[Rfam]
RNA sequence: CUGAAAAACAAGUAUCCUUUGAUACUUUUCAGGUCUCUUUUCAGAGACCUUUGAAAGGGUUUACCUUGUCCUG
Numbered sequence: 001c002u003g004a005a006a007a008a009c010a011a012g013u014a015u016c017c018u019u020u021g022a023u024a025c026u027u028u029u030c031a032g033g034u035c036u037c038u039u040u041u042c043a044g045a046g047a048c049c050u051u052u053g054a055a056a057g058g059g060u061u062u063a064c065c066u067u068g069u070c071c072u073g
Base pairs, nucleotide, nucleotide: 003030004029005028006027007026009021010020011019012018031050032049033048034047035046036045037044038043
A member of the RNA family "SAM-Chlorobi RNA" from Calypte anna, 73 nucleotides long. The family's RNA type in Rfam is cis-regulatory element.